[Rfam]
RNA sequence: GCCGGGCGUGGUAACGCAAGCCUAUCACUCAAGUGAGGGUAUUAAAGUGGUUGGAAGUUGGUCUAGUCCAGCAGGCUGUCCCUGAUGAGGUUAUUUACUGGCCCGCCCAUCCUAAGGUAGGAGUUGGGCUUUGAAGAAUUGCUGGAAGCAGGUUACAGGUUUGCAGGUGGAAGAAAUGCUGGAAGCAGGUUACAGGUUUACCUCCCACUCUUGUCGGUGGAUGGAUUGCGGGCCGGCCGGUGCUCCUCAGGUCCAUAUCUGCUGGGCCGUUCUCAAUAUGACAACCAUUUUU
Numbered sequence: 001g002c003c004g005g006g007c008g009u010g011g012u013a014a015c016g017c018a019a020g021c022c023u024a025u026c027a028c029u030c031a032a033g034u035g036a037g038g039g040u041a042u043u044a045a046a047g048u049g050g051u052u053g054g055a056a057g058u059u060g061g062u063c064u065a066g067u068c069c070a071g072c073a074g075g076c077u078g079u080c081c082c083u084g085a086u087g088a089g090g091u092u093a094u095u096u097a098c099u100g101g102c103c104c105g106c107c108c109a110u111c112c113u114a115a116g117g118u119a120g121g122a123g124u125u126g127g128g129c130u131u132u133g134a135a136g137a138a139u140u141g142c143u144g145g146a147a148g149c150a151g152g153u154u155a156c157a158g159g160u161u162u163g164c165a166g167g168u169g170g171a172a173g174a175a176a177u178g179c180u181g182g183a184a185g186c187a188g189g190u191u192a193c194a195g196g197u198u199u200a201c202c203u204c205c206c207a208c209u210c211u212u213g214u215c216g217g218u219g220g221a222u223g224g225a226u227u228g229c230g231g232g233c234c235g236g237c238c239g240g241u242g243c244u245c246c247u248c249a250g251g252u253c254c255a256u257a258u259c260u261g262c263u264g265g266g267c268c269g270u271u272c273u274c275a276a277u278a279u280g281a282c283a284a285c286c287a288u289u290u291u292u
Stems, first nucleotide, its partner, number of pairs: 001040003004023004009018002028037003044291010056279001058276003061272001064269001066267001068265008078254001081251005087246001089244002092242002098236009107224002112220003116215009126162006133156001135154002142151003163168001169206002172203002
RNA: Plant signal recognition particle RNA